[Rfam]
Source information:
Y RNA: a 101-nucleotide RNA sequence from Rhinopithecus bieti. The family has 104 seed sequences and 26,986 matches in Rfam 15.1. The match comes from Rfam's covariance-model search (54 bits). The organism belongs to Rhinopithecus, within Eukaryota.
RNA sequence: GGCUGUUCCAAGUGCAGCAGUGUUUACAACUAAUUGAUACAACAAGUUACAAAUUUCUUUGUUGCUUCUUCAUUCCCACUGCUUCACUUGGCUAGCCUUAA
Numbered sequence: 001g002g003c004u005g006u007u008c009c010a011a012g013u014g015c016a017g018c019a020g021u022g023u024u025u026a027c028a029a030c031u032a033a034u035u036g037a038u039a040c041a042a043c044a045a046g047u048u049a050c051a052a053a054u055u056u057c058u059u060u061g062u063u064g065c066u067u068c069u070u071c072a073u074u075c076c077c078a079c080u081g082c083u084u085c086a087c088u089u090g091g092c093u094a095g096c097c098u099u100a101a
Stems, first nucleotide, its partner, number of pairs: 001097005007091002010089002014085001016080002020076001022075001028063003032059002